[Rfam]
Record summary
Rfam assigns this 79-nucleotide RNA from Medicago truncatula to the family "MIR5269 microRNA precursor family". The organism belongs to Medicago, within Eukaryota. Rfam 15.1 lists 389 matches to the family in 6 species. Rfam links the family to the GO terms miRNA-mediated post-transcriptional gene silencing and RISC complex.
RNA sequence: UUGGUUUAAAUCAUUGUGGGUCUACACCUUAAAAAUUGAACUCACACAAAGUAGUUGGACAUACAUUGAUUUCAUCUAA
Numbered sequence: 001u002u003g004g005u006u007u008a009a010a011u012c013a014u015u016g017u018g019g020g021u022c023u024a025c026a027c028c029u030u031a032a033a034a035a036u037u038g039a040a041c042u043c044a045c046a047c048a049a050a051g052u053a054g055u056u057g058g059a060c061a062u063a064c065a066u067u068g069a070u071u072u073c074a075u076c077u078a079a
Base pairs, nucleotide, nucleotide: 001079002078003077004076006074008072009071010070011069012068013067015065016064017063018062022057024055026052027051029049030048